RNA sequence: ACCCUUCUACAUAAAAAGAAGUCUGCUAUAAUUGUGUGAUUCAGAUUCUGUUUCAUGCUAUAAUGCUAGCAGACUAUUGCGUAGAAGGAGAUUAUGACUCACUGUACUGAAAAUGAGACUUUGUCGAACCUCUUUCUUAAUGUUCAUUGGCUUCUUGUCUCAAGGUGCAGUGCAACAAUU
Dot-bracket structure: ....................((.(((((..((((..((...(((...)))...)).....))))..))))).)).........................(((((((..............(.(..(((..............)))..).)...............)))))))........
Numbered sequence: 001a002c003c004c005u006u007c008u009a010c011a012u013a014a015a016a017a018g019a020a021g022u023c024u025g026c027u028a029u030a031a032u033u034g035u036g037u038g039a040u041u042c043a044g045a046u047u048c049u050g051u052u053u054c055a056u057g058c059u060a061u062a063a064u065g066c067u068a069g070c071a072g073a074c075u076a077u078u079g080c081g082u083a084g085a086a087g088g089a090g091a092u093u094a095u096g097a098c099u100c101a102c103u104g105u106a107c108u109g110a111a112a113a114u115g116a117g118a119c120u121u122u123g124u125c126g127a128a129c130c131u132c133u134u135u136c137u138u139a140a141u142g143u144u145c146a147u148u149g150g151c152u153u154c155u156u157g158u159c160u161c162a163a164g165g166u167g168c169a170g171u172g173c174a175a176c177a178a179u180u
Stems, first nucleotide, its partner, number of pairs: 021074002024071005031064004037055002042050003100172007121150001123148001126145003

Source information: Shown here is a 180-nucleotide sequence from Gasterosteus aculeatus, a member of the family "Small nucleolar RNA SNORA81". Lineage of the source: Eukaryota > Euteleostomi > Actinopterygii > Actinopteri > Gasterosteus. The family has 28 seed sequences and 1,161 matches in Rfam 15.1. The match comes from Rfam's covariance-model search (75 bits). The base pairs follow the family's consensus structure, which was predicted with WAR. The family's RNA type in Rfam is H/ACA-box small nucleolar RNA.